[Rfam]
RNA sequence: GUCAUACUAAGGCGCUUCAUACCGCAAAGUAAACGAUGACCCUUGUGGAACUUCAGAGUAAAAUAUAUAUCAAAAUGAAAAAUCAUCACUAACCCGGCGCUUUGCUCCCGGGUUAGUAAGACUG
Dot-bracket structure: (((((.....(..((.............))...).)))))((....)).........(((.......))).................((((((((((..........)))))))))).......